The family of this 96-nucleotide RNA sequence from Aminipila terrae is "NiCo (Nickel/Cobalt) riboswitch aptamer". A reference for the family is Furukawa et al. (2015), "Bacterial riboswitches cooperatively bind Ni(2+) or Co(2+) ions and control expression of heavy metal transporters", Mol Cell.

RNA sequence: AAUGUAAGAUAAAAUCAGGCAAUGAAUUUGACACAAUAAAUACAUUGCUGGGCCAUCAAAUUGGCAGCAGGAACAAAAAAGACCUGUGGGACUAUA
Numbered sequence: 001a002a003u004g005u006a007a008g009a010u011a012a013a014a015u016c017a018g019g020c021a022a023u024g025a026a027u028u029u030g031a032c033a034c035a036a037u038a039a040a041u042a043c044a045u046u047g048c049u050g051g052g053c054c055a056u057c058a059a060a061u062u063g064g065c066a067g068c069a070g071g072a073a074c075a076a077a078a079a080a081g082a083c084c085u086g087u088g089g090g091a092c093u094a095u096a
Base pairs, nucleotide, nucleotide: 012093016090018049019048020047021046022045023044024043026041027040028039029038052065053064054063055062067087068086069085070084071083